[Rfam]
RNA sequence: GGGUUCGAAGCAGGCGCUUCGGAGGCAAUUGAAACAGUCGGGCCGCUGUUU
Numbered sequence: 001g002g003g004u005u006c007g008a009a010g011c012a013g014g015c016g017c018u019u020c021g022g023a024g025g026c027a028a029u030u031g032a033a034a035c036a037g038u039c040g041g042g043c044c045g046c047u048g049u050u051u
Stems, first nucleotide, its partner, number of pairs: 005022007032051007
Rfam assigns this 51-nucleotide RNA sequence from Opitutus terrae to the family "nhaA-I RNA". It is annotated as a riboswitch. The base pairs follow the family's consensus structure, which is taken from published work. Acidobacteria, Alphaproteobacteria, Betaproteobacteria and Gammaproteobacteria, Verrucomicrobia, cand. division NC10.